Shown here is a 30-nucleotide RNA sequence from Staphylococcus aureus, a member of the family "L31-Firmicutes ribosomal protein leader". The family's consensus secondary structure is taken from published work. The family is grouped with related families in Rfam's "Ribosomal Protein L31 Leader clan". Rfam classes the family as a cis-regulatory leader. The sequence is in the family's curated seed alignment. The source organism's lineage runs through Bacteria, Bacillota, Staphylococcaceae, Staphylococcus and Staphylococcus aureus.

RNA sequence: CUCUGUUCCAGACGGUUCAGGGCAAAGGAG
Numbered sequence: 001c002u003c004u005g006u007u008c009c010a011g012a013c014g015g016u017u018c019a020g021g022g023c024a025a026a027g028g029a030g
Base pairs, nucleotide, nucleotide: 001022002021003020004019005018008015009014